[Rfam]
RNA sequence: GGUGAUAAAUGAUGCCGUGAAAUAGACAUAGCGGACCCGGGGCAGUACCCGGCGGCUCCACCACCAGCCCCGGGAGCGAGGCUGAUGCUGGGGCCGAACCAGGAUCGACGUGUGUUCAAAGACGGUGUUUUGCCCGGCCUGACUGAGCCGUUAAACCGGUUUAACUCACAAAUGCCAACGAUAACGAGGCAUUCGCGAUUGCUGCCUAA
Numbered sequence: 001g002g003u004g005a006u007a008a009a010u011g012a013u014g015c016c017g018u019g020a021a022a023u024a025g026a027c028a029u030a031g032c033g034g035a036c037c038c039g040g041g042g043c044a045g046u047a048c049c050c051g052g053c054g055g056c057u058c059c060a061c062c063a064c065c066a067g068c069c070c071c072g073g074g075a076g077c078g079a080g081g082c083u084g085a086u087g088c089u090g091g092g093g094c095c096g097a098a099c100c101a102g103g104a105u106c107g108a109c110g111u112g113u114g115u116u117c118a119a120a121g122a123c124g125g126u127g128u129u130u131u132g133c134c135c136g137g138c139c140u141g142a143c144u145g146a147g148c149c150g151u152u153a154a155a156c157c158g159g160u161u162u163a164a165c166u167c168a169c170a171a172a173u174g175c176c177a178a179c180g181a182u183a184a185c186g187a188g189g190c191a192u193u194c195g196c197g198a199u200u201g202c203u204g205c206c207u208a209a
Stems, first nucleotide, its partner, number of pairs: 001134005015125004027114003031111003037052005053096007135150004
RNA: permuted transfer-messenger RNA
Organism: Hankyongella ginsenosidimutans